[Rfam]
RNA sequence: UCGUCCGCGUCGUGGGACACCUCCGCGCGGGAAGGGGCGCACGGCUACUCUGGCUGGGUGCGUCUUCCACCGGAAGUCGCAAAGCCGACAGCCGUCGCAUCCCAGGGAGCACAUUCCAUG
Numbered sequence: 001u002c003g004u005c006c007g008c009g010u011c012g013u014g015g016g017a018c019a020c021c022u023c024c025g026c027g028c029g030g031g032a033a034g035g036g037g038c039g040c041a042c043g044g045c046u047a048c049u050c051u052g053g054c055u056g057g058g059u060g061c062g063u064c065u066u067c068c069a070c071c072g073g074a075a076g077u078c079g080c081a082a083a084g085c086c087g088a089c090a091g092c093c094g095u096c097g098c099a100u101c102c103c104a105g106g107g108a109g110c111a112c113a114u115u116c117c118a119u120g
Base pairs, nucleotide, nucleotide: 059081060080061079062078064076065075066074067073084098085097087096088095089094
Streptomyces-metH RNA: a 120-nucleotide RNA from Streptomyces sp. ISL-10. It is annotated as a small RNA. The base pairs follow the family's consensus structure, which is taken from published work.